[Rfam]
Rfam assigns this 97-nucleotide RNA sequence from Flavobacterium pygoscelis to the family "Flavo-1 RNA". The organism belongs to Flavobacterium, within Bacteria. The match comes from Rfam's covariance-model search (59 bits).
RNA sequence: UUUUGGCCAAAGUAUGUGCGUUAGGGAUUGAAGUGUAAAUCCUUUUUUUGCUGAGGGACGAAGCCAAAAAAGAUUGCAACGCAAAGCCCGACCUUGU
Numbered sequence: 001u002u003u004u005g006g007c008c009a010a011a012g013u014a015u016g017u018g019c020g021u022u023a024g025g026g027a028u029u030g031a032a033g034u035g036u037a038a039a040u041c042c043u044u045u046u047u048u049u050g051c052u053g054a055g056g057g058a059c060g061a062a063g064c065c066a067a068a069a070a071a072g073a074u075u076g077c078a079a080c081g082c083a084a085a086g087c088c089c090g091a092c093c094u095u096g097u
Stems, first nucleotide, its partner, number of pairs: 024089003028085002033080002038075004044070005050064002